[Rfam]
RNA sequence: GACUAACCAGCCUGAUUUCUGGCUCAACCUGUGUUUGCUUGUUAGGUGAGCAAGAAUUCAGGUGGGCUUGUUA
Numbered sequence: 001g002a003c004u005a006a007c008c009a010g011c012c013u014g015a016u017u018u019c020u021g022g023c024u025c026a027a028c029c030u031g032u033g034u035u036u037g038c039u040u041g042u043u044a045g046g047u048g049a050g051c052a053a054g055a056a057u058u059c060a061g062g063u064g065g066g067c068u069u070g071u072u073a
Base pairs, nucleotide, nucleotide: 002071003070005068007066010063011062012061013060014059015058017056018055019054020053023050024049025048026047028046029045030044

This 73-nucleotide RNA sequence from Bugula neritina belongs to the Rfam family "mir-87 microRNA precursor family". Rfam 15.1 lists 420 matches to the family in 285 species. The organism belongs to Bugula, within Eukaryota. Its family is annotated with RISC complex and miRNA-mediated post-transcriptional gene silencing in the Gene Ontology. On this family, see Ruby et al., Genome Res 2007: "Evolution, biogenesis, expression, and target predictions of a substantially expanded set of Drosophila microRNAs".